[Rfam]
RNA: speF leader
Organism: Limoniibacter endophyticus
RNA sequence: UACCGGUUGUCCACAAACCGGGAAUGCUGAAGAGGCACACCUUCAUUGCCGUAGAGUGCGGUGGGAAAUCCCCUCCAAUAUCUAGGCAGACAAAAGCGAACGCAGACCAGUUUCUGGCCUGGUUCAAUCGCAACGCAGCAUUGCAUCCGCUUCGGUU
Numbered sequence: 001u002a003c004c005g006g007u008u009g010u011c012c013a014c015a016a017a018c019c020g021g022g023a024a025u026g027c028u029g030a031a032g033a034g035g036c037a038c039a040c041c042u043u044c045a046u047u048g049c050c051g052u053a054g055a056g057u058g059c060g061g062u063g064g065g066a067a068a069u070c071c072c073c074u075c076c077a078a079u080a081u082c083u084a085g086g087c088a089g090a091c092a093a094a095a096g097c098g099a100a101c102g103c104a105g106a107c108c109a110g111u112u113u114c115u116g117g118c119c120u121g122g123u124u125c126a127a128u129c130g131c132a133a134c135g136c137a138g139c140a141u142u143g144c145a146u147c148c149g150c151u152u153c154g155g156u157u
Base pairs, nucleotide, nucleotide: 001023003021004020005019006018007017008016034050035049036048037047058136059135060134086097087096105119107117108116109115
Dot-bracket structure: (.((((((.......)))))).)..........((((.........)))).......(((.........................((........)).......(.(((.....))).)..............))).....................